A member of the RNA family "Mammalian CPEB3 ribozyme" from Branchiostoma floridae, 68 nucleotides long. A search with the family's covariance model found it, with a score of 37 bits. The base pairs follow the family's consensus structure, which is taken from published work. Rfam's curators write: The mammalian CPEB3 ribozyme is a self cleaving RNA located in the second intron of the CPEB3 gene which belongs to a family of genes regulating messenger RNA polyadenylation. The source organism's lineage runs through Eukaryota, Opisthokonta, Chordata, Leptocardii and Branchiostoma.

[Rfam]
RNA sequence: CGGUCGAGACAUGGGGCCACAGGCGGAGCGUUCUGGUCGCGGCCCCGCCAGCACCUGCGAAUCUUUCU
Numbered sequence: 001c002g003g004u005c006g007a008g009a010c011a012u013g014g015g016g017c018c019a020c021a022g023g024c025g026g027a028g029c030g031u032u033c034u035g036g037u038c039g040c041g042g043c044c045c046c047g048c049c050a051g052c053a054c055c056u057g058c059g060a061a062u063c064u065u066u067c068u
Stems, first nucleotide, its partner, number of pairs: 013046006021068003025064003028040003049057003